Rfam assigns this 72-nucleotide sequence from Kosakonia cowanii to the family "Repression of heat shock gene expression (ROSE) element".
The base pairs follow the family's consensus structure, which is taken from published work.
For this family Rfam cites "Replicon-specific regulation of small heat shock genes in Agrobacterium tumefaciens" (Balsiger et al., J Bacteriol, 2004).
About the family: This family represents a 5' UTR cis-regulatory element found in heat shock mRNAs and is known as the ROSE (repression of heat shock gene expression) element.
Taxonomically the source falls in Kosakonia cowanii (Bacteria, Pseudomonadota, Gammaproteobacteria, Enterobacterales).
[Rfam]
RNA sequence: UAUGGCAUGAAGAUCGGUCCAUUAUGGAAGGUCUUACACACUCGCUGAUUUCAGGAGCUUUAACUAUGCGUA
Numbered sequence: 001u002a003u004g005g006c007a008u009g010a011a012g013a014u015c016g017g018u019c020c021a022u023u024a025u026g027g028a029a030g031g032u033c034u035u036a037c038a039c040a041c042u043c044g045c046u047g048a049u050u051u052c053a054g055g056a057g058c059u060u061u062a063a064c065u066a067u068g069c070g071u072a
Base pairs, nucleotide, nucleotide: 012033013032014031015030018028019027020026038061041057042056043055045054046053047052